[Rfam]
Rfam assigns this 78-nucleotide RNA sequence from Flavobacterium commune to the family "Flavo-1 RNA".
The source organism's lineage runs through Bacteria, Flavobacteriia, Flavobacteriales, Flavobacteriaceae and Flavobacterium.
A search with the family's covariance model found it, with a score of 80 bits.

Nucleotides: 078
Base pairs, nucleotide, nucleotide: 009070010069011068013066014065018061019060023056024055025054026053029051030050031049032048033047034046035045036044
Number, partner (000 for none) and nucleotide at each position: 001000c002000c003000c004000u005000a006000g007000c008000c009070c010069c011068g012000a013066u014065a015000g016000c017000a018061g019060u020000g021000a022000a023056a024055a025054u026053c027000c028000u029051u030050u031049u032048g033047u034046g035045c036044c037000g038000g039000u040000g041000u042000u043000c044036g045035g046034c047033a048032c049031a050030a051029a052000a053026g054025a055024u056023u057000g058000c059000a060019a061018c062000g063000a064000a065014u066013a067000g068011c069010g070009g071000g072000a073000a074000a075000u076000u077000g078000c